[Rfam]
RNA sequence: GACUCAUCGAGACCGGCUGAGGGACAGGCCCUUGGACGCCGGGGCAACCAGCGGUACACCCGCCAGGUGCCAAUUCCUGCGAUGGCGAUGCCAUCGACAGAUGAGCA
Numbered sequence: 001g002a003c004u005c006a007u008c009g010a011g012a013c014c015g016g017c018u019g020a021g022g023g024a025c026a027g028g029c030c031c032u033u034g035g036a037c038g039c040c041g042g043g044g045c046a047a048c049c050a051g052c053g054g055u056a057c058a059c060c061c062g063c064c065a066g067g068u069g070c071c072a073a074u075u076c077c078u079g080c081g082a083u084g085g086c087g088a089u090g091c092c093a094u095c096g097a098c099a100g101a102u103g104a105g106c107a
Stems, first nucleotide, its partner, number of pairs: 003105006013042005021031003025079004043071004048067002051063003075099001080096006

Background: The family of this 107-nucleotide RNA from Rehaibacterium terrae is "SAM riboswitch aptamer (S box leader)". Pairs were carried over by alignment from the consensus structure, which is taken from published work. The match comes from Rfam's covariance-model search (88 bits).